Rfam assigns this 75-nucleotide RNA sequence from Macaca mulatta to the family "mir-920 microRNA precursor family". The base pairs follow the family's consensus structure, which was predicted with RNAalifold. Taxonomically the source falls in Macaca (Eukaryota, Metazoa, Sarcopterygii, Mammalia). The literature on the family includes a 2007 paper in Int J Androl by Novotny et al., "Analysis of gene expression in normal and neoplastic human testis: new roles of RNA".

RNA sequence: GUAGUUGUUCUAUAGAAGACCUGGAUGUGGAAGAGCUAAGACACACUCCAGGGGAGCUGUGGAAGCGGUAACACG
Number, nucleotide and partner (000 for none) at each position: 001g072002u071003a000004g000005u068006u067007g066008u065009u064010c062011u061012a060013u059014a058015g057016a000017a000018g000019a000020c052021c051022u050023g049024g048025a047026u045027g044028u043029g042030g000031a000032a000033g000034a000035g000036c000037u000038a000039a000040g000041a000042c029043a028044c027045a026046c000047u025048c024049c023050a022051g021052g020053g000054g000055a000056g000057c015058u014059g013060u012061g011062g010063a000064a009065g008066c007067g006068g005069u000070a000071a002072c001073a000074c000075g000